Shown here is a 93-nucleotide sequence from Candidatus Pelagibacter communis, a member of the family "rpsL sRNA". The family has 6 seed sequences and 52 matches in Rfam 15.1. Rfam's curators put it in the seed alignment. A reference for the family is Meyer et al. (2009), "Identification of candidate structured RNAs in the marine organism 'Candidatus Pelagibacter ubique'", BMC Genomics. Rfam classes the family as a small RNA.
RNA sequence: UUGACGCUGUUUUUGGUUGGAAUGUAGUACCUACUUUACGGAACUAAACGCUGCCACAAAAUAACCUGUCAGUUAUUUUCACUCAAAAAUAUA
Numbered sequence: 001u002u003g004a005c006g007c008u009g010u011u012u013u014u015g016g017u018u019g020g021a022a023u024g025u026a027g028u029a030c031c032u033a034c035u036u037u038a039c040g041g042a043a044c045u046a047a048a049c050g051c052u053g054c055c056a057c058a059a060a061a062u063a064a065c066c067u068g069u070c071a072g073u074u075a076u077u078u079u080c081a082c083u084c085a086a087a088a089a090u091a092u093a
Base pairs, nucleotide, nucleotide: 011088012087013086014085015084016083019080020078021077022076023075024074025046026045027044028043030041050073051072052071053070